[Rfam]
RNA sequence: UCGUCAGUGAGGUACAUCCUGACCUGGCCGCCCCCCAGGGGGCGGGCAGCACGUGAUGAGAUUGAGCGUAAUGAGUGCGUGAUUACGUCACACAGGGAAGGGGCGGGAAAAGCAACGCCCGCCCCUUCCGGCUCAGCU
Numbered sequence: 001u002c003g004u005c006a007g008u009g010a011g012g013u014a015c016a017u018c019c020u021g022a023c024c025u026g027g028c029c030g031c032c033c034c035c036c037a038g039g040g041g042g043c044g045g046g047c048a049g050c051a052c053g054u055g056a057u058g059a060g061a062u063u064g065a066g067c068g069u070a071a072u073g074a075g076u077g078c079g080u081g082a083u084u085a086c087g088u089c090a091c092a093c094a095g096g097g098a099a100g101g102g103g104c105g106g107g108a109a110a111a112g113c114a115a116c117g118c119c120c121g122c123c124c125c126u127u128c129c130g131g132c133u134c135a136g137c138u
Stems, first nucleotide, its partner, number of pairs: 024045003028042002031040003075093001077091001080085001098127009
RNA: U8 small nucleolar RNA
Organism: Piaya cayana